[Rfam]
Nucleotides: 109
Stems, first nucleotide, its partner, number of pairs: 004108008013099002016096017035077008045067003
Number, partner (000 for none) and nucleotide at each position: 001000g002000u003000a004108g005107u006106u007105g008104g009103a010102u011101u012000u013099g014098u015000a016096u017095c018094a019093a020092u021091c022090c023089a024088c025087a026086u027085g028084u029083g030082u031081u032080g033000c034000g035077g036076u037075g038074g039073a040072u041071u042070a043000a044000a045067g046066u047065g048000g049000a050000a051000c052000u053000u054000g055000a056000a057000c058000u059000a060000a061000a062000u063000u064000u065047c066046a067045c068000c069000c070042u071041a072040a073039u074038c075037c076036a077035u078000c079000a080032c081031g082030a083029c084028a085027u086026a087025u088024g089023u090022g091021g092020a093019u094018u095017g096016a097000g098014g099013u100000u101011a102010a103009u104008c105007c106006g107005a108004c109000g

A member of the RNA family "MIR5565 microRNA precursor family" from Miscanthus lutarioriparius, 109 nucleotides long.
Rfam 15.1 lists 3,346 matches to the family in 5 species.
The family's consensus secondary structure was predicted with RNAalifold.
It scores 100 bits against the family's covariance model.